[Rfam]
RNA sequence: UCAGGAAUUUGGCCGAAUCGCACUCCGGUUGCACAGCAAUACCGGAUGGCGUACGGAGGAACCAAUUAUGGGGUGAAUGCGGCCUGCAUACCGGGAGGAAUUGCAGAUCGCCGGGAACCUUCUCCCGAACCCGUCAGCUAACUUCGGAGGCUUGGAAGGGGUUAUAU
Numbered sequence: 001u002c003a004g005g006a007a008u009u010u011g012g013c014c015g016a017a018u019c020g021c022a023c024u025c026c027g028g029u030u031g032c033a034c035a036g037c038a039a040u041a042c043c044g045g046a047u048g049g050c051g052u053a054c055g056g057a058g059g060a061a062c063c064a065a066u067u068a069u070g071g072g073g074u075g076a077a078u079g080c081g082g083c084c085u086g087c088a089u090a091c092c093g094g095g096a097g098g099a100a101u102u103g104c105a106g107a108u109c110g111c112c113g114g115g116a117a118c119c120u121u122c123u124c125c126c127g128a129a130c131c132c133g134u135c136a137g138c139u140a141a142c143u144u145c146g147g148a149g150g151c152u153u154g155g156a157a158g159g160g161g162u163u164a165u166a167u
Stems, first nucleotide, its partner, number of pairs: 011152004019051002054146005063070002071132003079111004113126004
Shown here is a 167-nucleotide sequence from Effusibacillus lacus, a member of the family "c-di-AMP riboswitch aptamer (ydaO/yuaA leader)". The match comes from Rfam's covariance-model search (71 bits).